[Rfam]
RNA sequence: UGUUGAUGAUAUAAGUAGAUACUUCUAGGCUUUGUUUUUUAUUAAAGCCUAAAAAUGUCUACUAGUAUUAUUGGUAA
Numbered sequence: 001u002g003u004u005g006a007u008g009a010u011a012u013a014a015g016u017a018g019a020u021a022c023u024u025c026u027a028g029g030c031u032u033u034g035u036u037u038u039u040u041a042u043u044a045a046a047g048c049c050u051a052a053a054a055a056u057g058u059c060u061a062c063u064a065g066u067a068u069u070a071u072u073g074g075u076a077a
Base pairs, nucleotide, nucleotide: 001076002075003074004073005072006071007070008069009068010067011066012065014063015062016061017060018059019058020057021056023054024053027050028049029048030047031046033045
The record is a 77-nucleotide RNA from Manduca sexta, which matches "mir-2797 microRNA precursor family" in Rfam. Its family is annotated with RISC complex and miRNA-mediated post-transcriptional gene silencing in the Gene Ontology. The organism belongs to Manduca, within Eukaryota. The family's consensus secondary structure was predicted with RNAalifold.